[Rfam]
RNA sequence: AGUUGCAUUACAAGGCAGUUCUCUCCUUUGGCAGACAACAAUUAUGAGAUGCAUGUGUUGGCUUCAUGCAUUCCUGCCAAAGGAGAUUUGCCCAGCAAUUCUCCU
Numbered sequence: 001a002g003u004u005g006c007a008u009u010a011c012a013a014g015g016c017a018g019u020u021c022u023c024u025c026c027u028u029u030g031g032c033a034g035a036c037a038a039c040a041a042u043u044a045u046g047a048g049a050u051g052c053a054u055g056u057g058u059u060g061g062c063u064u065c066a067u068g069c070a071u072u073c074c075u076g077c078c079a080a081a082g083g084a085g086a087u088u089u090g091c092c093c094a095g096c097a098a099u100u101c102u103c104c105u
Stems, first nucleotide, its partner, number of pairs: 005101001007099003011095001014092005023085004029079006037071001

mir-399 microRNA precursor family: a 105-nucleotide sequence from Malus baccata. The family has 13 seed sequences and 2,396 matches in Rfam 15.1. For this family Rfam cites "Computational Identification of Plant MicroRNAs and Their Targets, Including a Stress-Induced miRNA" (Jones-Rhoades and Bartel, Mol Cell, 2004). NCBI's taxonomy places the organism under Eukaryota, Streptophytina, Euphyllophyta, eudicotyledons, Malus. It scores 62 bits against the family's covariance model. The base pairs follow the family's consensus structure, which was predicted with PFOLD. Rfam links the family to the GO terms miRNA-mediated post-transcriptional gene silencing and RISC complex. Rfam describes the family as follows. mir-399 was identified in both Arabidopsis thaliana and Oryza sativa computationally and was later experimentally verified. mir-399 is thought to target mRNAs coding for a phosphatase transporter. The mature sequence is excised from the 3' arm of the hairpin.